[Rfam]
RNA: c-di-GMP-I riboswitch aptamer
Organism: Jeotgalibacillus soli
RNA sequence: UAAUCGAAAAGGCAAACUAGUUGAAAAGCUGGGACGCAAAGUCAACAGAUCUAAGGUGGCAUCACUAAGAUGGCUGGACUGCCGAG
Numbered sequence: 001u002a003a004u005c006g007a008a009a010a011g012g013c014a015a016a017c018u019a020g021u022u023g024a025a026a027a028g029c030u031g032g033g034a035c036g037c038a039a040a041g042u043c044a045a046c047a048g049a050u051c052u053a054a055g056g057u058g059g060c061a062u063c064a065c066u067a068a069g070a071u072g073g074c075u076g077g078a079c080u081g082c083c084g085a086g
Base pairs, nucleotide, nucleotide: 012037013036017032018031019030020029021028022027040080041079042078043077046076047075048074049071050070051069056065057064058063